[Rfam]
RNA sequence: GUACUCCCACUAUCCCACAAUAUAAGAGCGUUUUUGACACUAAUGUAGUGUCAGAAACGCUCUUAUAUUAUGAGGCGGAGGGAGUAG
Numbered sequence: 001g002u003a004c005u006c007c008c009a010c011u012a013u014c015c016c017a018c019a020a021u022a023u024a025a026g027a028g029c030g031u032u033u034u035u036g037a038c039a040c041u042a043a044u045g046u047a048g049u050g051u052c053a054g055a056a057a058c059g060c061u062c063u064u065a066u067a068u069u070a071u072g073a074g075g076c077g078g079a080g081g082g083a084g085u086a087g
Stems, first nucleotide, its partner, number of pairs: 003085003007081002010078002013075002016072002019069023
A member of the RNA family "MIR1120/MIR1122 microRNA precursor family" from Aegilops tauschii, 87 nucleotides long.
For this family Rfam cites "Cloning and characterization of microRNAs from wheat (Triticum aestivum L.)" (Yao et al., Genome Biol, 2007).